Record summary: mir-166 microRNA precursor family: a 143-nucleotide RNA sequence from Brassica rapa. The organism belongs to Brassica, within Eukaryota. On this family, see Reinhart et al., Genes Dev 2002: "MicroRNAs in plants". About the family: This family represents the plant microRNA (miRNA) precursor mir-166.
[Rfam]
RNA sequence: UUUGAGGGGAAUGUUGUCUGGCUCGAGGACUCUGGCUCUAUCAACUCAUGUUGGAUCUUCUUCGAUCUAAUCGAAUCAAACCUCUAUGUUUGAGAUCUGAUUAGGGUUUUAGUGUCGUCGGACCAGGCUUCAUUCCCCCCAAU
Numbered sequence: 001u002u003u004g005a006g007g008g009g010a011a012u013g014u015u016g017u018c019u020g021g022c023u024c025g026a027g028g029a030c031u032c033u034g035g036c037u038c039u040a041u042c043a044a045c046u047c048a049u050g051u052u053g054g055a056u057c058u059u060c061u062u063c064g065a066u067c068u069a070a071u072c073g074a075a076u077c078a079a080a081c082c083u084c085u086a087u088g089u090u091u092g093a094g095a096u097c098u099g100a101u102u103a104g105g106g107u108u109u110u111a112g113u114g115u116c117g118u119c120g121g122a123c124c125a126g127g128c129u130u131c132a133u134u135c136c137c138c139c140c141a142a143u
Stems, first nucleotide, its partner, number of pairs: 002142003006138008016128006024120003